[Rfam]
RNA sequence: AGCCACAAGUUUGAGGCCAUGGCAGAAGCAGCCAGGGUGUAGUCCUGUCAGAUUUCAACAAAUCAGCAAAUUCUGCU
Numbered sequence: 001a002g003c004c005a006c007a008a009g010u011u012u013g014a015g016g017c018c019a020u021g022g023c024a025g026a027a028g029c030a031g032c033c034a035g036g037g038u039g040u041a042g043u044c045c046u047g048u049c050a051g052a053u054u055u056c057a058a059c060a061a062a063u064c065a066g067c068a069a070a071u072u073c074u075g076c077u
Stems, first nucleotide, its partner, number of pairs: 013045001015044003021077007028040003049066001051064005
Description:
The family of this 77-nucleotide RNA sequence from Alligator sinensis is "Mammalian CPEB3 ribozyme". The base pairs follow the family's consensus structure, which is taken from published work.